The record is a 100-nucleotide RNA from Gloeobacterales cyanobacterium ES-bin-313, which matches "Guanidine-I riboswitch aptamer" in Rfam. The source organism's lineage runs through Bacteria, Bacillati, Cyanobacteriota, Cyanophyceae and Gloeobacterales. From the family's description: This family represents a conserved RNA structure found upstream of the ykkC and yxkD genes in Bacillus subtilis and related genes in other bacteria. Gene Ontology term of the family: regulation of gene expression.
RNA sequence: AACAUACGCUUCUAGGGUUCCGAUCUGUGGGAUGUCUGGUCCGAGAGAAGCAGCCAGUUUUUAGAAAUUGGCCACACGGCGGGAUAAAAGCCCGGGAGAG
Number, nucleotide and partner (000 for none) at each position: 001a000002a000003c000004a000005u000006a000007c000008g051009c050010u049011u048012c047013u000014a000015g042016g041017g000018u000019u000020c039021c038022g036023a033024u032025c031026u030027g000028u000029g000030g026031g025032a024033u023034g000035u000036c022037u000038g021039g020040u000041c016042c015043g000044a000045g000046a000047g012048a011049a010050g009051c008052a000053g072054c071055c070056a069057g068058u067059u066060u000061u000062u000063a000064g000065a000066a059067a058068u057069u056070g055071g054072c053073c000074a000075c095076a000077c098078g000079g000080c000081g093082g092083g091084a000085u000086a000087a000088a000089a000090g000091c083092c082093c081094g000095g075096g000097a000098g077099a000100g000